[Rfam]
RNA sequence: CCACUGAGGCCGGCAGGUUUCGGGCGACUAUCAGAAGUCAGCAGAGGGCAUACUAAGACUGCUCGAUCCAGUCGAAGGCC
Numbered sequence: 001c002c003a004c005u006g007a008g009g010c011c012g013g014c015a016g017g018u019u020u021c022g023g024g025c026g027a028c029u030a031u032c033a034g035a036a037g038u039c040a041g042c043a044g045a046g047g048g049c050a051u052a053c054u055a056a057g058a059c060u061g062c063u064c065g066a067u068c069c070a071g072u073c074g075a076a077g078g079c080c
Base pairs, nucleotide, nucleotide: 002024004023005022006021007020008019009018010017011016038045039044047080048079049078057073058072059071060070061069